RNA sequence: UGCUGGUGGUGAAGCGCUCCCUCUCAGAGCACUGGGUUCUGCCCGGGGUGAGCCCGCGCCCGCCGUCCCGGGGCCCUGCGCGCCUUUGUGCAUUCCACCCAGCGAAGGAGCA
Number, nucleotide and partner (000 for none) at each position: 001u112002g111003c110004u109005g000006g000007u000008g000009g000010u000011g000012a000013a000014g000015c000016g000017c000018u000019c000020c000021c000022u000023c000024u000025c000026a000027g000028a000029g000030c000031a000032c000033u000034g000035g000036g000037u000038u000039c000040u000041g000042c000043c000044c000045g000046g000047g000048g000049u000050g000051a000052g000053c000054c000055c000056g000057c000058g000059c000060c000061c000062g000063c000064c000065g000066u000067c000068c000069c000070g000071g000072g000073g000074c000075c000076c000077u000078g000079c000080g000081c000082g000083c000084c000085u000086u000087u000088g000089u000090g000091c000092a000093u000094u000095c000096c000097a000098c000099c000100c000101a000102g000103c000104g000105a000106a000107g000108g000109a004110g003111c002112a001